The record is a 107-nucleotide sequence from Prunus avium, which matches "MIR6274 microRNA precursor family" in Rfam.

RNA sequence: GGAUAACACUGUUUUGCUAUCCACGACCAAUAACACAAUGACAUGUGGAAAAGUUAUCCUACGUGUCAUUGGAUUAUUGGCCGGGGAUAGCAAAAAGUGUUAUACCC
Dot-bracket structure: .(.((......(((((((((.(.((.(((((((..(((((((((((((.(......).)))))))))))))..))))))).)).).))))))))).......)).).
The source organism's lineage runs through Eukaryota, Streptophytina, Mesangiospermae, Amygdaloideae and Prunus.